[Rfam]
RNA sequence: UGAUGAGUUGAACGGGGGAGGAUUUGAACCGGUGGAGGUUCGACAAAAUCGCCAGGAGCGAUUUUGAACGCGCGCAGCGCGGCCCGAAGGGCGGAGGGCAUGGAAGCCCGGAGUAAUCCUCCCCCCUCCACCA
Numbered sequence: 001u002g003a004u005g006a007g008u009u010g011a012a013c014g015g016g017g018g019a020g021g022a023u024u025u026g027a028a029c030c031g032g033u034g035g036a037g038g039u040u041c042g043a044c045a046a047a048a049u050c051g052c053c054a055g056g057a058g059c060g061a062u063u064u065u066g067a068a069c070g071c072g073c074g075c076a077g078c079g080c081g082g083c084c085c086g087a088a089g090g091g092c093g094g095a096g097g098g099c100a101u102g103g104a105a106g107c108c109c110g111g112a113g114u115a116a117u118c119c120u121c122c123c124c125c126c127u128c129c130a131c132c133a
Stems, first nucleotide, its partner, number of pairs: 015124007023116001033093002039088004046064007071081004
A member of the RNA family "RtT RNA" from Magnetovirga frankeli, 133 nucleotides long. Rfam's curators write: This family represents a bacterial cis-regulatory element known as RtT RNA. The exact function of RtT is unknown although it is thought that it may be involved in changing the cellular response in relation to amino acid starvation. Rfam links the family to the GO term cellular response to amino acid starvation. It is annotated as a cis-regulatory element. A reference for the family is Bosl and Kersten (1991), "A novel RNA product of the tyrT operon of Escherichia coli", Nucleic Acids Res. Taxonomically the source falls in Magnetovirga (Bacteria, Pseudomonadota, Chromatiales, Sedimenticolaceae). The match comes from Rfam's covariance-model search (53 bits).